[Rfam]
RNA sequence: UGAGUUGACUGGGCGGCCGCGACGGGCCUCGGCCCGCCGAGGAACGUCCGGGCUCCACAGGGCACGGUGGUGGGUAACGCCCACCCGGGGUGACCCGCGGGCAAGUGCCACAGAGAGUAGACCGCUGCCGGAGUUCGCUUCGGCAGUAAGGGUGAAAGGGUGGUGUAAGAGACCACCAGCGCACUGGGUGACCAGUGCGGCUAGGUAAACCCCACCGGGAGCAAGAUCAGACAGGAUGCGUAUCAAGGCGGCUCGCCUGAGCAUCCGGGUAGAUCGCUCGAGGGCGCCGGCAACGACGCCCCUAGAUGGAUGGUCGCCUCCCACCGACCGGCAACGGUCGGUGGAGACAGAACCCGGCGUAUAGGUCAACUCAUCCG
Numbered sequence: 001u002g003a004g005u006u007g008a009c010u011g012g013g014c015g016g017c018c019g020c021g022a023c024g025g026g027c028c029u030c031g032g033c034c035c036g037c038c039g040a041g042g043a044a045c046g047u048c049c050g051g052g053c054u055c056c057a058c059a060g061g062g063c064a065c066g067g068u069g070g071u072g073g074g075u076a077a078c079g080c081c082c083a084c085c086c087g088g089g090g091u092g093a094c095c096c097g098c099g100g101g102c103a104a105g106u107g108c109c110a111c112a113g114a115g116a117g118u119a120g121a122c123c124g125c126u127g128c129c130g131g132a133g134u135u136c137g138c139u140u141c142g143g144c145a146g147u148a149a150g151g152g153u154g155a156a157a158g159g160g161u162g163g164u165g166u167a168a169g170a171g172a173c174c175a176c177c178a179g180c181g182c183a184c185u186g187g188g189u190g191a192c193c194a195g196u197g198c199g200g201c202u203a204g205g206u207a208a209a210c211c212c213c214a215c216c217g218g219g220a221g222c223a224a225g226a227u228c229a230g231a232c233a234g235g236a237u238g239c240g241u242a243u244c245a246a247g248g249c250g251g252c253u254c255g256c257c258u259g260a261g262c263a264u265c266c267g268g269g270u271a272g273a274u275c276g277c278u279c280g281a282g283g284g285c286g287c288c289g290g291c292a293a294c295g296a297c298g299c300c301c302c303u304a305g306a307u308g309g310a311u312g313g314u315c316g317c318c319u320c321c322c323a324c325c326g327a328c329c330g331g332c333a334a335c336g337g338u339c340g341g342u343g344g345a346g347a348c349a350g351a352a353c354c355c356g357g358c359g360u361a362u363a364g365g366u367c368a369a370c371u372c373a374u375c376c377g
Stems, first nucleotide, its partner, number of pairs: 001373010011362001012318007020039002023036005044360003048357005053221004060254004065217005070084005085099001086097004100212002105210002107206003122151002124147009159177006179201001180199008225275004234266006246258004282301005288295002
Dot-bracket structure: ((((((((((((((((((.((.(((((....))))).))....[[[.[[[[[((((...[[[[.((((((((((.....)))))(((((....)))).)((...(((((............(((((((((((......)))))))))..)).......((((((.......)))))).(((((((((....)))))))).)..)))..)))))))))))))...((((.....((((((......((((.]]]]))))..)))))).....))))......(((((.((....)).)))))..........)))))))..................................]]]]]]]].).))))))))))....
Shown here is a 377-nucleotide sequence from Rarobacter faecitabidus, a member of the family "Bacterial RNase P class A". Gene Ontology terms of the family: dimeric ribonuclease P complex, tRNA processing and ribonuclease P activity. The base pairs follow the family's consensus structure, which is taken from published work. It scores 315 bits against the family's covariance model.